[Rfam]
RNA sequence: AUUGUUGCUUGACAACGAGAGAGAGCACGCUAGUCGGCAUUCAUGCAUCGAACAUUAUUGUGUACAAGCGUGCUCCCUAUCGUCGUCAUAUAAUU
Number, nucleotide and partner (000 for none) at each position: 001a000002u000003u000004g000005u000006u000007g000008c000009u000010u088011g087012a086013c085014a000015a000016c082017g081018a000019g000020a078021g077022a000023g075024a000025g073026c072027a071028c070029g069030c068031u067032a000033g065034u064035c000036g000037g000038c000039a000040u000041u000042c000043a000044u000045g000046c000047a000048u000049c000050g000051a000052a000053c000054a000055u000056u000057a000058u000059u000060g000061u000062g000063u000064a034065c033066a000067a031068g030069c029070g028071u027072g026073c025074u000075c023076c000077c021078u020079a000080u000081c017082g016083u000084c000085g013086u012087c011088a010089u000090a000091u000092a000093a000094u000095u000

MIR535 microRNA precursor family: a 95-nucleotide RNA from Actinidia chinensis. NCBI's taxonomy places the organism under Eukaryota, Streptophyta, Streptophytina, Actinidiaceae, Actinidia chinensis. The literature on the family includes a 2010 paper in Nucleic Acids Res by Zeng et al., "Conservation and divergence of microRNAs and their functions in Euphorbiaceous plants". The match comes from Rfam's covariance-model search (91 bits).